The family of this 166-nucleotide RNA from Pogona vitticeps is "U1 spliceosomal RNA". The organism belongs to Pogona, within Eukaryota. The family's consensus secondary structure is taken from published work. It is annotated as a spliceosomal small nuclear RNA. U1 is a small nuclear RNA (snRNA) component of the spliceosome (involved in pre-mRNA splicing).
RNA sequence: AUUCAUACCUUGCAAGGGAAAUGCCAUGUCGUAAAAAUGGUUUUCCUAGGGAGAGGCUCAUCCAUUGCACUUCAAGUAUGUUGCUGAUCCCUAUGAUUUCACCAAAUGUGGAAAACUCAACUGCAUAAUUUGUGUUAAUGGGGGAUUGCUCUUGUGAUUUCCCUUG
Numbered sequence: 001a002u003u004c005a006u007a008c009c010u011u012g013c014a015a016g017g018g019a020a021a022u023g024c025c026a027u028g029u030c031g032u033a034a035a036a037a038u039g040g041u042u043u044u045c046c047u048a049g050g051g052a053g054a055g056g057c058u059c060a061u062c063c064a065u066u067g068c069a070c071u072u073c074a075a076g077u078a079u080g081u082u083g084c085u086g087a088u089c090c091c092u093a094u095g096a097u098u099u100c101a102c103c104a105a106a107u108g109u110g111g112a113a114a115a116c117u118c119a120a121c122u123g124c125a126u127a128a129u130u131u132g133u134g135u136u137a138a139u140g141g142g143g144g145a146u147u148g149c150u151c152u153u154g155u156g157a158u159u160u161c162c163c164u165u166g
Stems, first nucleotide, its partner, number of pairs: 012124003016047006023041005048092004053088001055085003059080003062076001094119003097115001098113002102110001140165006149156001
Dot-bracket structure: ...........(((.((((((.(((((.........)))))))))))((((.(.(((.((((.............).)))..)))..))))).((((((..(.......).)).).)))..)))...............((((((...(......)...)))))).